The record is a 75-nucleotide sequence from Streptomyces buecherae, which matches "ASpks TB sRNA" in Rfam. Rfam classes the family as an antisense RNA. The base pairs follow the family's consensus structure, which is taken from published work.
RNA sequence: CUUGAUGGCGCCCAGCAGCAACGGCCGGCCCUCGGGGCGGCCCUGGCCGUAGGUGGCAAGCAGUGCCUGCGCCUC
Dot-bracket structure: ..............((.......)).....(.(....((...((..(((....)))..))...))...).)....